A member of the RNA family "Archaeal large subunit ribosomal RNA" from Thermocladium modestius, 98 nucleotides of a longer RNA. The organism belongs to Thermocladium, within Archaea. The literature on the family includes a 2001 paper in Science by Yusupov et al., "Crystal structure of the ribosome at 5.5 A resolution".
RNA sequence: GGGGCGGCCUCAAAGGAUUCCUCGGUCCGAAGGAAACCAAGGCAACUUGGGAGUACGAGGGCUGGGGCCGGGGUCGCUCCUUACGUCUAGAAACACGG
Numbered sequence: 001g002g003g004g005c006g007g008c009c010u011c012a013a014a015g016g017a018u019u020c021c022u023c024g025g026u027c028c029g030a031a032g033g034a035a036a037c038c039a040a041g042g043c044a045a046c047u048u049g050g051g052a053g054u055a056c057g058a059g060g061g062c063u064g065g066g067g068c069c070g071g072g073g074u075c076g077c078u079c080c081u082u083a084c085g086u087c088u089a090g091a092a093a094c095a096c097g098g
Stems, first nucleotide, its partner, number of pairs: 001080010015069002022065007032056001037050005084097003